[Rfam]
RNA sequence: CACUGCAAAGAUAAAAACACAGUCCGGUUGGUAGUCCGGGCGUCCUUUGGGAUCAGUAACCUGCCUCCUUGGUUGUCCCUUCUUUGUGUCAGCAUG
Numbered sequence: 001c002a003c004u005g006c007a008a009a010g011a012u013a014a015a016a017a018c019a020c021a022g023u024c025c026g027g028u029u030g031g032u033a034g035u036c037c038g039g040g041c042g043u044c045c046u047u048u049g050g051g052a053u054c055a056g057u058a059a060c061c062u063g064c065c066u067c068c069u070u071g072g073u074u075g076u077c078c079c080u081u082c083u084u085u086g087u088g089u090c091a092g093c094a095u096g
Stems, first nucleotide, its partner, number of pairs: 004088008022041006042053004063073003
The record is a 96-nucleotide RNA sequence from Oscillibacter hominis, which matches "azaaromatic riboswitch aptamer (yjdF RNA)" in Rfam. The source organism's lineage runs through Bacteria, Clostridia, Eubacteriales, Oscillospiraceae and Oscillibacter. A search with the family's covariance model found it, with a score of 82 bits. The family's consensus secondary structure is taken from published work.